[Rfam]
RNA sequence: GACCGUCACUCAGCUGUUUUUCUUUCGUUUCUUUUUUACCUCACUUUAGUGGAGGCAAUUCGUUACGCGAAAAAACAGCAAAUGACGAACAGAAAGCCUCCUUCACCGGGGGCUUUUUUGUA
Numbered sequence: 001g002a003c004c005g006u007c008a009c010u011c012a013g014c015u016g017u018u019u020u021u022c023u024u025u026c027g028u029u030u031c032u033u034u035u036u037u038a039c040c041u042c043a044c045u046u047u048a049g050u051g052g053a054g055g056c057a058a059u060u061c062g063u064u065a066c067g068c069g070a071a072a073a074a075a076c077a078g079c080a081a082a083u084g085a086c087g088a089a090c091a092g093a094a095a096g097c098c099u100c101c102u103u104c105a106c107c108g109g110g111g112g113c114u115u116u117u118u119u120g121u122a
Stems, first nucleotide, its partner, number of pairs: 016090004021085002024082002027079003032074003036070002039067001042051002054064003093116009